Shown here is a 34-nucleotide RNA, a member of the family "L31-Firmicutes ribosomal protein leader". Pairs were carried over by alignment from the consensus structure, which is taken from published work. Rfam classes the family as a cis-regulatory leader.
RNA sequence: CUCUGAACGACAUUACAGUUCAGGGCGGAAGGAG
Dot-bracket structure: ((((((((.........)))))))).........